[Rfam]
RNA sequence: CUGAAGGAUUAUAUCGAAGAAUCAAAUGAAGAGGUAACGCUCGGAAGGGUUCUCUCUUAGUCGAGUAGCACUUGAAUUAGUAAGAAUAAUCGUGUUAUAAGCUCGGUGAAAAGGCGUAAGAAUUUACCGUAAUAGUGUAGUUUUGCUGUCGAAAUCCUACCCGAUGGGGUGGUGUAAUUCAUGAUGCUUGAGUUGAAUGA
Numbered sequence: 001c002u003g004a005a006g007g008a009u010u011a012u013a014u015c016g017a018a019g020a021a022u023c024a025a026a027u028g029a030a031g032a033g034g035u036a037a038c039g040c041u042c043g044g045a046a047g048g049g050u051u052c053u054c055u056c057u058u059a060g061u062c063g064a065g066u067a068g069c070a071c072u073u074g075a076a077u078u079a080g081u082a083a084g085a086a087u088a089a090u091c092g093u094g095u096u097a098u099a100a101g102c103u104c105g106g107u108g109a110a111a112a113g114g115c116g117u118a119a120g121a122a123u124u125u126a127c128c129g130u131a132a133u134a135g136u137g138u139a140g141u142u143u144u145g146c147u148g149u150c151g152a153a154a155u156c157c158u159a160c161c162c163g164a165u166g167g168g169g170u171g172g173u174g175u176a177a178u179u180c181a182u183g184a185u186g187c188u189u190g191a192g193u194u195g196a197a198u199g200a
Stems, first nucleotide, its partner, number of pairs: 018053006033041002054192003061106004065098007076087003113188005122179001124177004128151002134147004156172002159170004
Shown here is a 200-nucleotide RNA from Psychrobacillus insolitus, a member of the family "Group II catalytic intron D1-D4-5".
The organism belongs to Psychrobacillus, within Bacteria.
The family has 139 seed sequences and 720 matches in Rfam 15.1.
Rfam links the family to the GO term Group II intron splicing.
A reference for the family is Lehmann and Schmidt (2003), "Group II introns: structure and catalytic versatility of large natural ribozymes", Crit Rev Biochem Mol Biol.